[Rfam]
mir-172 microRNA precursor family: a 125-nucleotide RNA from Carya illinoinensis. A reference for the family is Jones-Rhoades and Bartel (2004), "Computational Identification of Plant MicroRNAs and Their Targets, Including a Stress-Induced miRNA", Mol Cell. Pairs were carried over by alignment from the consensus structure, which was predicted with PFOLD. mir-172 has been experimentally verified in Arabidopsis thaliana. This family is thought to target mRNAs coding for APETALA2-like transcription factors. The mature sequence is excised from the 3' arm of the hairpin.

RNA sequence: UUAUCCGCCGAUGCAGCAUCAUCAAGAUUCUCAACUCCGGCAUCUGGAAGAAAUUAACUUCAUCAAGUUGCUUCCGCCGUGCAUUAAUGGCAUGUGAAUCUUGAUGAUGCUGCGCCUGCAAACAA
Numbered sequence: 001u002u003a004u005c006c007g008c009c010g011a012u013g014c015a016g017c018a019u020c021a022u023c024a025a026g027a028u029u030c031u032c033a034a035c036u037c038c039g040g041c042a043u044c045u046g047g048a049a050g051a052a053a054u055u056a057a058c059u060u061c062a063u064c065a066a067g068u069u070g071c072u073u074c075c076g077c078c079g080u081g082c083a084u085u086a087a088u089g090g091c092a093u094g095u096g097a098a099u100c101u102u103g104a105u106g107a108u109g110c111u112g113c114g115c116c117u118g119c120a121a122a123c124a125a
Stems, first nucleotide, its partner, number of pairs: 010116001012114019032094002